[Rfam]
RNA sequence: GAUCGCAAUGAUGACUUGAAAAAUUCAAGCUCAACAGACUGGAUUACAAGCUUUCUCUCUGAGAAGGUUGUAUGUCGACUACACUAUACUGAGUGAUC
Numbered sequence: 001g002a003u004c005g006c007a008a009u010g011a012u013g014a015c016u017u018g019a020a021a022a023a024u025u026c027a028a029g030c031u032c033a034a035c036a037g038a039c040u041g042g043a044u045u046a047c048a049a050g051c052u053u054u055c056u057c058u059c060u061g062a063g064a065a066g067g068u069u070g071u072a073u074g075u076c077g078a079c080u081a082c083a084c085u086a087u088a089c090u091g092a093g094u095g096a097u098c
Stems, first nucleotide, its partner, number of pairs: 001098006
This 98-nucleotide RNA sequence from Hevea brasiliensis belongs to the Rfam family "Small nucleolar RNA Z107/R87". The organism belongs to Hevea, within Eukaryota. The family's RNA type in Rfam is C/D-box small nucleolar RNA.